Shown here is a 182-nucleotide RNA sequence from Oncorhynchus kisutch, a member of the family "U2 spliceosomal RNA". On this family, see Zwieb, Nucleic Acids Res 1997: "The uRNA database". NCBI's taxonomy places the organism under Eukaryota, Deuterostomia, Actinopteri, Osteoglossocephalai, Oncorhynchus. The family's consensus secondary structure is taken from published work. Rfam's curators write: U2 is a small nuclear RNA (snRNA) component of the spliceosome (involved in pre-mRNA splicing).
[Rfam]
Nucleotides: 182
Stems, first nucleotide, its partner, number of pairs: 001019002005015003038057006059075007103135005109129002115126004138175006145167005
Number, partner (000 for none) and nucleotide at each position: 001019a002018u003000a004000a005015u006014u007013u008000u009000u010000u011000g012000u013007a014006a015005a016000a017000a018002a019001u020000a021000u022000a023000a024000a025000a026000g027000a028000a029000a030000u031000c032000u033000g034000g035000u036000c037000u038057u039056a040055u041054c042053a043052g044000u045000u046000u047000a048000a049000u050000a051000u052043c053042u054041g055040a056039u057038a058000c059075g060074u061073c062072c063071c064070c065069c066000a067000u068000a069065g070064g071063g072062g073061g074060a075059c076000u077000a078000c079000a080000u081000a082000u083000u084000a085000a086000a087000a088000g089000g090000a091000u092000u093000u094000u095000u096000c097000g098000a099000a100000c101000a102000g103135g104134g105133a106132g107131u108000c109129g110128g111000a112000a113000a114000u115126g116125g117124g118123g119000c120000u121000u122000g123118c124117u125116c126115c127000g128110u129109c130000c131107g132106c133105u134104c135103c136000a137000c138175g139174c140173a141172u142171c143170g144000a145167c146166c147165c148164g149163g150000u151000a152000u153000u154000g155000c156000a157000g158000u159000a160000c161000c162000u163149c164148c165147g166146g167145g168000a169000a170143c171142g172141g173140u174139g175138c176000a177000a178000c179000a180000c181000u182000u